[Rfam]
RNA sequence: AAAAAUUUUUGUAUAUUUCCUAAGACUCGGGUGGCGUAAGCCUUAAUUUCCUGGCGACCGGAAAAGAAUAAGUGGUCCUUCGUGUCUUAGUAGGUACGAAGUUUUUUUAUUUUAGG
Numbered sequence: 001a002a003a004a005a006u007u008u009u010u011g012u013a014u015a016u017u018u019c020c021u022a023a024g025a026c027u028c029g030g031g032u033g034g035c036g037u038a039a040g041c042c043u044u045a046a047u048u049u050c051c052u053g054g055c056g057a058c059c060g061g062a063a064a065a066g067a068a069u070a071a072g073u074g075g076u077c078c079u080u081c082g083u084g085u086c087u088u089a090g091u092a093g094g095u096a097c098g099a100a101g102u103u104u105u106u107u108u109a110u111u112u113u114a115g116g
Stems, first nucleotide, its partner, number of pairs: 028053004033042003078101009
RNA: Ribosomal protein L10 leader